Plastid-psbA-4 3UTR RNA: a 60-nucleotide RNA from Capsicum annuum. The family's RNA type in Rfam is cis-regulatory element. The family is grouped with related families in Rfam's "Plastid-psbA 3UTR RNA clan". From the family's description: Plastid psbA-4 is a non-coding RNA (ncRNA) present in plastids. The base pairs follow the family's consensus structure, which was predicted with LocARNA. A reference for the family is Richter et al. (2023), "Retrograde signaling in plants: A critical review focusing on the GUN pathway and beyond", Plant Commun.
[Rfam]
RNA sequence: AAAAGAAAGGAGCAAUAAUCAUUUUCUUGUUUAACAAGAAAAUGAUUAUUGCUCCUUUCU
Numbered sequence: 001a002a003a004a005g006a007a008a009g010g011a012g013c014a015a016u017a018a019u020c021a022u023u024u025u026c027u028u029g030u031u032u033a034a035c036a037a038g039a040a041a042a043u044g045a046u047u048a049u050u051g052c053u054c055c056u057u058u059c060u
Stems, first nucleotide, its partner, number of pairs: 006058012021043002024040006